[Rfam]
RNA: Plastid-ycf2 5UTR RNA
Organism: Zea mays
RNA sequence: GUGCAUCCAACAGGACUAGAACCCGCAAAUUUACCAAUUAUGAGUUGGGCGCUUUAACCGUUCGGCCGUGGAUGC
Numbered sequence: 001g002u003g004c005a006u007c008c009a010a011c012a013g014g015a016c017u018a019g020a021a022c023c024c025g026c027a028a029a030u031u032u033a034c035c036a037a038u039u040a041u042g043a044g045u046u047g048g049g050c051g052c053u054u055u056a057a058c059c060g061u062u063c064g065g066c067c068g069u070g071g072a073u074g075c
Stems, first nucleotide, its partner, number of pairs: 003075006011025001013023002040069003044066008
Dot-bracket structure: ..((((((..(.((.......)).)..............(((.((((((((.......)))))))))))))))))